[Rfam]
RNA sequence: AUAUUCUCCAUUCGGGGAAGGCUGAGAAGCUUCGACUAAGGUUCGACUCGAGCAUCGCGAGAGAGCGUUGCCGCAGGCAACGACCCGAAGGGCGAGGAGCGCAGCGACGAGUAAUCCUUCCCCCCAGCUUA
Dot-bracket structure: ..............(((((((.(.........((.((....((((...((.......))......((((((.....))))))...)))).))))...................).))))))).........
Numbered sequence: 001a002u003a004u005u006c007u008c009c010a011u012u013c014g015g016g017g018a019a020g021g022c023u024g025a026g027a028a029g030c031u032u033c034g035a036c037u038a039a040g041g042u043u044c045g046a047c048u049c050g051a052g053c054a055u056c057g058c059g060a061g062a063g064a065g066c067g068u069u070g071c072c073g074c075a076g077g078c079a080a081c082g083a084c085c086c087g088a089a090g091g092g093c094g095a096g097g098a099g100c101g102c103a104g105c106g107a108c109g110a111g112u113a114a115u116c117c118u119u120c121c122c123c124c125c126a127g128c129u130u131a
Stems, first nucleotide, its partner, number of pairs: 015122007023114001033094002036092002042089004049059002066082006